Histidine operon leader: a 138-nucleotide sequence from Vibrio parahaemolyticus. By type it is a cis-regulatory leader. At least 6 amino acid operons are known to be regulated by attenuation. Rfam links the family to the GO term histidine biosynthetic process. The sequence is in the family's curated seed alignment. On this family, see Kolter and Yanofsky, Annu Rev Genet 1982: "Attenuation in amino acid biosynthetic operons". Pairs were carried over by alignment from the consensus structure, which is taken from published work.
[Rfam]
RNA sequence: UCAUCACCAUCAUCACCCAGCCUAGUCUUUCGGGAGAUGUACGCAUACCCGGGAGGCAGGAAACUCCCGGAGGUGAAAAUCAAAGUAAGAACAGAUUUUAAACCCUCGGGAGACGCCAAUCUCUCGAGGGUUUUUUAG
Numbered sequence: 001u002c003a004u005c006a007c008c009a010u011c012a013u014c015a016c017c018c019a020g021c022c023u024a025g026u027c028u029u030u031c032g033g034g035a036g037a038u039g040u041a042c043g044c045a046u047a048c049c050c051g052g053g054a055g056g057c058a059g060g061a062a063a064c065u066c067c068c069g070g071a072g073g074u075g076a077a078a079a080u081c082a083a084a085g086u087a088a089g090a091a092c093a094g095a096u097u098u099u100a101a102a103c104c105c106u107c108g109g110g111a112g113a114c115g116c117c118a119a120u121c122u123c124u125c126g127a128g129g130g131u132u133u134u135u136u137a138g
Base pairs, nucleotide, nucleotide: 009046010045011039012038013037014036017034018033020031048070049069051068052067053066054065055064100133101132102131103130104129105128106127107126108125109124110123111122112121